[Rfam]
This 507-nucleotide part of an RNA from Achlya hypogyna belongs to the Rfam family "Eukaryotic large subunit ribosomal RNA". The source organism's lineage runs through Eukaryota, Oomycota, Saprolegniomycetes, Saprolegniales and Achlya. It scores 3214 bits against the family's covariance model. Rfam links the family to the GO terms structural constituent of ribosome and ribosome.
RNA sequence: CCCUCCGAAAUUUCCCUCAGGAUAGCAGCAACUUUUUACGAUAGUUUUAUGAGGUAAAGCGAAUGAUUAGAGGCCUCGGGGAAGAAACUUCCUCGACCUAUUCUCAAACUUUAAAUGGGUAAGACCUGUGGGUUUCUUAAUUGAACCUGUGGACGUGAAUAUCCAAGUUGCUAGUGGGCCAUACCGGGUAAGCUGGUCUGGCGAUGCGGGAUGAUCCGAACGCAGAGUUAAAGUGCCAAAGUACCCGCUCACCUAGAUACCAUAAAAGGUGUUGGUUCAUUUAGACAGCAGGACGGUGGCCAUGGAAGUCGGAAUCCGCUAAGGAGUGUGUAACAACUCACCUGCCGAAUGAACUAGCCCUGAAAAUGGAUGGCGCUGAAGCGAGUCACUUAUACUCUGCCGUUAAGGCGAUAGCAUGAGAAAUGUAUGCCUUAAUGAGUAGGAGGGCGUGAAGGUUGUGAAGAAGCUCGUGGUGUGAACCUGAGUGAAACAUCCUUUAGUGCAGAU
Numbered sequence: 001c002c003c004u005c006c007g008a009a010a011u012u013u014c015c016c017u018c019a020g021g022a023u024a025g026c027a028g029c030a031a032c033u034u035u036u037u038a039c040g041a042u043a044g045u046u047u048u049a050u051g052a053g054g055u056a057a058a059g060c061g062a063a064u065g066a067u068u069a070g071a072g073g074c075c076u077c078g079g080g081g082a083a084g085a086a087a088c089u090u091c092c093u094c095g096a097c098c099u100a101u102u103c104u105c106a107a108a109c110u111u112u113a114a115a116u117g118g119g120u121a122a123g124a125c126c127u128g129u130g131g132g133u134u135u136c137u138u139a140a141u142u143g144a145a146c147c148u149g150u151g152g153a154c155g156u157g158a159a160u161a162u163c164c165a166a167g168u169u170g171c172u173a174g175u176g177g178g179c180c181a182u183a184c185c186g187g188g189u190a191a192g193c194u195g196g197u198c199u200g201g202c203g204a205u206g207c208g209g210g211a212u213g214a215u216c217c218g219a220a221c222g223c224a225g226a227g228u229u230a231a232a233g234u235g236c237c238a239a240a241g242u243a244c245c246c247g248c249u250c251a252c253c254u255a256g257a258u259a260c261c262a263u264a265a266a267a268g269g270u271g272u273u274g275g276u277u278c279a280u281u282u283a284g285a286c287a288g289c290a291g292g293a294c295g296g297u298g299g300c301c302a303u304g305g306a307a308g309u310c311g312g313a314a315u316c317c318g319c320u321a322a323g324g325a326g327u328g329u330g331u332a333a334c335a336a337c338u339c340a341c342c343u344g345c346c347g348a349a350u351g352a353a354c355u356a357g358c359c360c361u362g363a364a365a366a367u368g369g370a371u372g373g374c375g376c377u378g379a380a381g382c383g384a385g386u387c388a389c390u391u392a393u394a395c396u397c398u399g400c401c402g403u404u405a406a407g408g409c410g411a412u413a414g415c416a417u418g419a420g421a422a423a424u425g426u427a428u429g430c431c432u433u434a435a436u437g438a439g440u441a442g443g444a445g446g447g448c449g450u451g452a453a454g455g456u457u458g459u460g461a462a463g464a465a466g467c468u469c470g471u472g473g474u475g476u477g478a479a480c481c482u483g484a485g486u487g488a489a490a491c492a493u494c495c496u497u498u499a500g501u502g503c504a505g506a507u
Base pairs, nucleotide, nucleotide: 001447002446003445004444005443006442011024013022014021015020027172028171029170030169031168032167033166045124046123047122048121049120050119057112058110059109064106065105066104069101071099072098073097076096077095078094079093080092081091083089126152127151128150129149130148131147132146133145134144178202179201180200181199183197184196185195186194187193207218208217209216222400223399224398225397226396228394232390233389234388241387243386246383247382248381267361268360269359271358272357273356274355275354276353277352278351279350280349288345289344290343291342292341294318295317296316300312301311319323324339328337329336401437402436403435404434405433406432407431408430409429448502450499451498452497453496454495455494457492458491459490466486467485472481473480474479